[Rfam]
RNA: mir-46/mir-47/mir-281 microRNA precursor family
Organism: Plectus sambesii
RNA sequence: CGACGAAUGCUGCCAAGAGAGCUAUCUGUUGACAGUUGGAUGACUGAUGGCACUGUCAUGGAGUUGCUCUCUUCACACGCAUUCGU
Numbered sequence: 001c002g003a004c005g006a007a008u009g010c011u012g013c014c015a016a017g018a019g020a021g022c023u024a025u026c027u028g029u030u031g032a033c034a035g036u037u038g039g040a041u042g043a044c045u046g047a048u049g050g051c052a053c054u055g056u057c058a059u060g061g062a063g064u065u066g067c068u069c070u071c072u073u074c075a076c077a078c079g080c081a082u083u084c085g086u
Stems, first nucleotide, its partner, number of pairs: 015073004020068003025062004031057003035053002
Dot-bracket structure: ..............((((.(((..((((..(((.((...............)).))).))))...))).)))).............